The record is a 71-nucleotide RNA from Sporanaerobacter acetigenes, which matches "tRNA" in Rfam. NCBI's taxonomy places the organism under Bacteria, Bacillati, Tissierellia, Sporanaerobacteraceae, Sporanaerobacter acetigenes. By type it is a transfer RNA. The family's consensus secondary structure is taken from published work. Transfer RNA (tRNA) molecules are approximately 80 nucleotides in length.
RNA sequence: GCGGGUGUAGCUCAGUGGUAGAGCACUGGCUUCCCAAGCCAGCAGCGAGGGUUCGAUUCCCUUCACCCGCU
Numbered sequence: 001g002c003g004g005g006u007g008u009a010g011c012u013c014a015g016u017g018g019u020a021g022a023g024c025a026c027u028g029g030c031u032u033c034c035c036a037a038g039c040c041a042g043c044a045g046c047g048a049g050g051g052u053u054c055g056a057u058u059c060c061c062u063u064c065a066c067c068c069g070c071u
Base pairs, nucleotide, nucleotide: 001070002069003068004067005066006065007064010024011023012022013021026042027041028040029039030038047063048062049061050060051059